Background:
A member of the RNA family "Ribosomal protein L20 leader" from Piscibacillus halophilus, 146 nucleotides long. The base pairs follow the family's consensus structure, which was predicted with CMfinder. This family is a putative r-protein leader autoregulatory structure found in B. subtilis and other low-GC Gram-positive bacteria. It is located in the 5' untranslated regions of mRNAs encoding initiation factor 3 followed by ribosomal proteins L35 and L20 (infC-rpmI-rplT). A Rho-independent transcription terminator structure that is probably involved in regulation is included at the 3' end. Taxonomically the source falls in Piscibacillus (Bacteria, Bacilli, Caryophanales, Bacillaceae). A search with the family's covariance model found it, with a score of 72 bits.
RNA sequence: AUAGACAAGUAGAAGCACCCGCUUCUCACCUGAUCGACGCUAUAGGUAGUUGGCAGGUCAUCAUAUUUCUGACACAUACGGAUGAGUAUGUUUUUGAAGAAAUAAAUGUGUGGGUGCAAAACUUGUACCGACACUUUUUUUAUGGU
Numbered sequence: 001a002u003a004g005a006c007a008a009g010u011a012g013a014a015g016c017a018c019c020c021g022c023u024u025c026u027c028a029c030c031u032g033a034u035c036g037a038c039g040c041u042a043u044a045g046g047u048a049g050u051u052g053g054c055a056g057g058u059c060a061u062c063a064u065a066u067u068u069c070u071g072a073c074a075c076a077u078a079c080g081g082a083u084g085a086g087u088a089u090g091u092u093u094u095u096g097a098a099g100a101a102a103u104a105a106a107u108g109u110g111u112g113g114g115u116g117c118a119a120a121a122c123u124u125g126u127a128c129c130g131a132c133a134c135u136u137u138u139u140u141u142a143u144g145g146u
Stems, first nucleotide, its partner, number of pairs: 011026006028058003036051003039047002109133003113129006